Source information
The family of this 90-nucleotide RNA sequence from Acetobacterium bakii is "c-di-GMP-I riboswitch aptamer". The organism belongs to Acetobacterium, within Bacteria.

[Rfam]
RNA sequence: UAUAGAGAAAAGCAAAACAAGUGAAAGUUUGUGACGCAACACUAUAGGGUCUAAGUCGUUUGGUUUAUGAUAAGACAGCCAGUUACCACA
Numbered sequence: 001u002a003u004a005g006a007g008a009a010a011a012g013c014a015a016a017a018c019a020a021g022u023g024a025a026a027g028u029u030u031g032u033g034a035c036g037c038a039a040c041a042c043u044a045u046a047g048g049g050u051c052u053a054a055g056u057c058g059u060u061u062g063g064u065u066u067a068u069g070a071u072a073a074g075a076c077a078g079c080c081a082g083u084u085a086c087c088a089c090a
Stems, first nucleotide, its partner, number of pairs: 012037002017032006041083003047080002049076003056070004